L31-Firmicutes ribosomal protein leader: a 34-nucleotide sequence from Lentilactobacillus kisonensis. The literature on the family includes a 2020 paper in BMC Microbiol by Eckert and Weinberg, "Discovery of 20 novel ribosomal leader candidates in bacteria and archaea". The organism belongs to Lentilactobacillus kisonensis, within Bacteria. Its Rfam clan is "Ribosomal Protein L31 Leader clan". It is annotated as a cis-regulatory leader. The sequence is in the family's curated seed alignment.
[Rfam]
RNA sequence: CUCUGGGUCAUCGAAUUGAUUCAGGGCAAAGGAG
Numbered sequence: 001c002u003c004u005g006g007g008u009c010a011u012c013g014a015a016u017u018g019a020u021u022c023a024g025g026g027c028a029a030a031g032g033a034g
Stems, first nucleotide, its partner, number of pairs: 001026010